[Rfam]
RNA sequence: CCAACAGUCAUGACUAGAACCAGUAGGAUGGAAUCGACCUUUCAGAGAGCCGCCGGGUGGUGCGAGGCGGCAGGAGCGCUCCGUCCGAACUCCUCUAGGAACUGCUGCCUGACAACGUAGGGCCAGCCGGAAUUCCACCGUUACAGGGAUAGAUGGUGAUGGCCAUCGAACAAGAUCAUGCCUGCAUUCAGGCAUGAAUUAGAGUGGUACCGCGGGCAAUGCCCCGCCUCUAUG
Numbered sequence: 001c002c003a004a005c006a007g008u009c010a011u012g013a014c015u016a017g018a019a020c021c022a023g024u025a026g027g028a029u030g031g032a033a034u035c036g037a038c039c040u041u042u043c044a045g046a047g048a049g050c051c052g053c054c055g056g057g058u059g060g061u062g063c064g065a066g067g068c069g070g071c072a073g074g075a076g077c078g079c080u081c082c083g084u085c086c087g088a089a090c091u092c093c094u095c096u097a098g099g100a101a102c103u104g105c106u107g108c109c110u111g112a113c114a115a116c117g118u119a120g121g122g123c124c125a126g127c128c129g130g131a132a133u134u135c136c137a138c139c140g141u142u143a144c145a146g147g148g149a150u151a152g153a154u155g156g157u158g159a160u161g162g163c164c165a166u167c168g169a170a171c172a173a174g175a176u177c178a179u180g181c182c183u184g185c186a187u188u189c190a191g192g193c194a195u196g197a198a199u200u201a202g203a204g205u206g207g208u209a210c211c212g213c214g215g216g217c218a219a220u221g222c223c224c225c226g227c228c229u230c231u232a233u234g
Stems, first nucleotide, its partner, number of pairs: 007102002015097004026086006038074003049071006105126002107123004128140003177196007201231004212227005
Background:
This 234-nucleotide RNA from Paenibacillus albicereus belongs to the Rfam family "T-box leader". Gene Ontology term of the family: tRNA binding. On this family, see Grundy et al., J Bacteriol 1994: "Interaction between the acceptor end of tRNA and the T box stimulates antitermination in the Bacillus subtilis tyrS gene: a new role for the discriminator base". It scores 119 bits against the family's covariance model.